[Rfam]
Shown here is a 105-nucleotide sequence from Zea mays, a member of the family "Small nucleolar RNA Z157/R69/R10". By type it is a C/D-box small nucleolar RNA. Clan: SNORD52 clan. The organism belongs to Zea, within Eukaryota. Gene Ontology terms of the family: nucleolus and RNA processing.
RNA sequence: GAUUACGGGUAAUGAAGAACAAGUGAGUUUUCGACUAGAGUCUCUGAUGCUGCUACUUUGUUGGCGGUAGUUGAAGACCAAACCCUUGGCUGUCUGAACUCAAUC
Numbered sequence: 001g002a003u004u005a006c007g008g009g010u011a012a013u014g015a016a017g018a019a020c021a022a023g024u025g026a027g028u029u030u031u032c033g034a035c036u037a038g039a040g041u042c043u044c045u046g047a048u049g050c051u052g053c054u055a056c057u058u059u060g061u062u063g064g065c066g067g068u069a070g071u072u073g074a075a076g077a078c079c080a081a082a083c084c085c086u087u088g089g090c091u092g093u094c095u096g097a098a099c100u101c102a103a104u105c
Base pairs, nucleotide, nucleotide: 001105002104003103004102007099041076043074044073048069049068050067051066052065053064054063055062